[Rfam]
RNA sequence: CAUCGCGUCCGCAACUGGCGAGAAUGAGGUGGAUCAACCACCGGGGAGCGGACAGAUAAUUCCACCGCCGAUCGCCUGGGCAUUUCUG
Numbered sequence: 001c002a003u004c005g006c007g008u009c010c011g012c013a014a015c016u017g018g019c020g021a022g023a024a025u026g027a028g029g030u031g032g033a034u035c036a037a038c039c040a041c042c043g044g045g046g047a048g049c050g051g052a053c054a055g056a057u058a059a060u061u062c063c064a065c066c067g068c069c070g071a072u073c074g075c076c077u078g079g080g081c082a083u084u085u086c087u088g
Base pairs, nucleotide, nucleotide: 003056004055007053008052009051010050011049012048015045016044017076018075019074020073021072029041030040031039032038067081068080069079

Shown here is an 88-nucleotide sequence from Sphingomonadales bacterium EhC05, a member of the family "ZMP/ZTP riboswitch aptamer (pfl RNA motif)". Its family is annotated with one-carbon metabolic process and regulation of purine nucleotide biosynthetic process in the Gene Ontology. The organism belongs to Sphingomonadales, within Bacteria. For this family Rfam cites "Recognition of the bacterial alarmone ZMP through long-distance association of two RNA subdomains" (Jones and Ferre-D'Amare, Nat Struct Mol Biol, 2015).